The family of this 99-nucleotide RNA sequence from Alicyclobacillaceae bacterium I2511 is "TPP riboswitch aptamer (THI element)".

[Rfam]
RNA sequence: GCAAGGCGCUAGGGGUGCCAAAUAGGCUGAGAGACGGAAACGUCGACCCUGGAACUCGAUCUGGGUAAUGCCAGCGGGAGGAAGUGCCAUCGACAAAGG
Numbered sequence: 001g002c003a004a005g006g007c008g009c010u011a012g013g014g015g016u017g018c019c020a021a022a023u024a025g026g027c028u029g030a031g032a033g034a035c036g037g038a039a040a041c042g043u044c045g046a047c048c049c050u051g052g053a054a055c056u057c058g059a060u061c062u063g064g065g066u067a068a069u070g071c072c073a074g075c076g077g078g079a080g081g082a083a084g085u086g087c088c089a090u091c092g093a094c095a096a097a098g099g
Stems, first nucleotide, its partner, number of pairs: 006087005011050004017027003034043003055080003061074004

It scores 63 bits against the family's covariance model.